[Rfam]
RNA sequence: AGGGGUACUCUUAGAGCCCCAUACGAAUCAUGUUAAUAGUGUUGUCUUUGGCCGGGCGACAUGGUUAGGCAAAGC
Numbered sequence: 001a002g003g004g005g006u007a008c009u010c011u012u013a014g015a016g017c018c019c020c021a022u023a024c025g026a027a028u029c030a031u032g033u034u035a036a037u038a039g040u041g042u043u044g045u046c047u048u049u050g051g052c053c054g055g056g057c058g059a060c061a062u063g064g065u066u067a068g069g070c071a072a073a074g075c
Base pairs, nucleotide, nucleotide: 002020003019004018005017006016033068034067035066036065037064039062040061041060042059043058044057045056046055047054
Shown here is a 75-nucleotide RNA from Prevotella sp. oral taxon 306, a member of the family "L13-Bacteroidia ribosomal protein leader". NCBI's taxonomy places the organism under Bacteria, Bacteroidota, Bacteroidia, Prevotellaceae, Prevotella sp. oral taxon 306. Rfam's curators put it in the seed alignment. Rfam classes the family as a cis-regulatory leader.